[Rfam]
Nucleotides: 085
Base pairs, nucleotide, nucleotide: 012037013036017032018031019030020029021028022027040079041078042077043076045075046074047073048070049069050068055064056063057062
Number, partner (000 for none) and nucleotide at each position: 001000g002000u003000u004000c005000g006000u007000a008000a009000a010000g011000g012037g013036c014000a015000a016000a017032c018031u019030u020029a021028g022027u023000g024000a025000a026000a027022a028021u029020u030019a031018a032017g033000g034000a035000c036013g037012c038000a039000a040079a041078g042077c043076u044000a045075u046074u047073g048070g049069u050068c051000u052000a053000a054000g055064g056063g057062u058000a059000u060000u061000u062057a063056c064055c065000u066000a067000u068050g069049a070048u071000u072000g073047c074046a075045a076043a077042g078041c079040u080000g081000c082000c083000a084000a085000c
Rfam assigns this 85-nucleotide RNA from Pseudoalteromonas tunicata to the family "c-di-GMP-I riboswitch aptamer".